[Rfam]
RNA sequence: UGUUCUGUUUAGUUUUGCAGGUUUGCGUCCAGCUUUUAUAAGGUCUGCUGUGCAAAUCCAUGCAAAACUGACCGUAGCG
Numbered sequence: 001u002g003u004u005c006u007g008u009u010u011a012g013u014u015u016u017g018c019a020g021g022u023u024u025g026c027g028u029c030c031a032g033c034u035u036u037u038a039u040a041a042g043g044u045c046u047g048c049u050g051u052g053c054a055a056a057u058c059c060a061u062g063c064a065a066a067a068c069u070g071a072c073c074g075u076a077g078c079g
Stems, first nucleotide, its partner, number of pairs: 003077002006074002009071011020059002022056007031049003

A member of the RNA family "mir-19 microRNA precursor family" from Aquarana catesbeiana, 79 nucleotides long. Its family is annotated with miRNA-mediated post-transcriptional gene silencing and RISC complex in the Gene Ontology. It scores 73 bits against the family's covariance model. The family's consensus secondary structure was predicted with RNAalifold. A reference for the family is Mourelatos et al. (2002), "miRNPs: a novel class of ribonucleoproteins containing numerous microRNAs", Genes Dev. Lineage of the source: Eukaryota > Craniata > Teleostomi > Amphibia > Aquarana.